[Rfam]
RNA sequence: UUCUGACCCUCGGCUGCGAUCUCCAGCCGUUUCUGCCCUGACGCACUUCCCCGGCGCCAGGUCGAAACGGAGGGGGAUCGGAGCAGAGGGCCCCAGGGCC
Numbered sequence: 001u002u003c004u005g006a007c008c009c010u011c012g013g014c015u016g017c018g019a020u021c022u023c024c025a026g027c028c029g030u031u032u033c034u035g036c037c038c039u040g041a042c043g044c045a046c047u048u049c050c051c052c053g054g055c056g057c058c059a060g061g062u063c064g065a066a067a068c069g070g071a072g073g074g075g076g077a078u079c080g081g082a083g084c085a086g087a088g089g090g091c092c093c094c095a096g097g098g099c100c
Stems, first nucleotide, its partner, number of pairs: 010087002013084003018079002021076004027070007035063001037061004042056003
Dot-bracket structure: .........((.(((..((.((((..(((((((.(.((((.(((.........))).)))).))))))))..)))).))..))).)).............

A member of the RNA family "mraW RNA" from Microbacterium lemovicicum, 100 nucleotides long. Rfam 15.1 lists 851 matches to the family in 821 species. The source organism's lineage runs through Bacteria, Bacillati, Actinomycetota, Actinomycetes and Microbacterium.